[Rfam]
tRNA: an 82-nucleotide RNA from Desulfuromonas sp. DDH964.
By type it is a transfer RNA.
Transfer RNA (tRNA) molecules are approximately 80 nucleotides in length. Their secondary structure includes four short double-helical elements and three loops (D, anti-codon, and T loops).
The base pairs follow the family's consensus structure, which is taken from published work.
RNA sequence: GGAGGGGUUCCCGAGUGGCCAAAGGGAGCAGACUGUAAAUCUGCCGUCGUAGACUUCGGAGGUUCGAAUCCUCCCCCCUCCA
Dot-bracket structure: (((((((..(((...........))).(((((.......))))).............(((((.......)))))))))))).